[Rfam]
RNA sequence: GUCCCCUCGAUGGCGGGGCAAUGCCAUCAUCCCUCCCUGUUGGACUUGGCCCGGAGCUUGCUCCGGGCCUUUUUU
Numbered sequence: 001g002u003c004c005c006c007u008c009g010a011u012g013g014c015g016g017g018g019c020a021a022u023g024c025c026a027u028c029a030u031c032c033c034u035c036c037c038u039g040u041u042g043g044a045c046u047u048g049g050c051c052c053g054g055a056g057c058u059u060g061c062u063c064c065g066g067g068c069c070u071u072u073u074u075u
Base pairs, nucleotide, nucleotide: 009028010027011026012025013024014023048069049068050067051066052065053064054063055062

The family of this 75-nucleotide RNA from Rubellimicrobium roseum is "Singlet oxygen resistance RNA X". It is annotated as a small RNA. The source organism's lineage runs through Bacteria, Pseudomonadati, Pseudomonadota, Rhodobacterales and Rubellimicrobium. A reference for the family is Peng et al. (2016), "Regulation of a polyamine transporter by the conserved 3' UTR-derived sRNA SorX confers resistance to singlet oxygen and organic hydroperoxides in Rhodobacter sphaeroides", RNA Biol. Rfam's curators write: SorX (RSs2461)like SorY is a singlet oxygen induced sRNA that counteracts oxidative stress by targeting mRNA for a transporter in Rhodobacter. It also has an impact on resistance against organic hydroperoxides.